About this RNA
Rfam assigns this 74-nucleotide RNA from Dioscorea zingiberensis to the family "Plastid-clpP 5UTR RNA". Plastid clpP is a non-coding RNA (ncRNA) recognised in plastids. It was found in the prime untranslated region (5UTR) of a protease complex subunit (clpP) in plastids, suggesting a posible cis-regulatory function. For this family Rfam cites "Retrograde signaling in plants: A critical review focusing on the GUN pathway and beyond" (Richter et al., Plant Commun, 2023). NCBI's taxonomy places the organism under Eukaryota, Streptophyta, Tracheophyta, Liliopsida, Dioscorea. The base pairs follow the family's consensus structure, which was predicted with LocARNA. It is annotated as a cis-regulatory element.
[Rfam]
RNA sequence: AAUUCUGUUCAUAAGAACAAAGAGAAACAGAUCUAUUCUAUACUAUACCCGAUGAGUACGAAUACGCAAUGGAA
Numbered sequence: 001a002a003u004u005c006u007g008u009u010c011a012u013a014a015g016a017a018c019a020a021a022g023a024g025a026a027a028c029a030g031a032u033c034u035a036u037u038c039u040a041u042a043c044u045a046u047a048c049c050c051g052a053u054g055a056g057u058a059c060g061a062a063u064a065c066g067c068a069a070u071g072g073a074a
Base pairs, nucleotide, nucleotide: 003022004021006019007018008017009016010015049072050071056065057064058063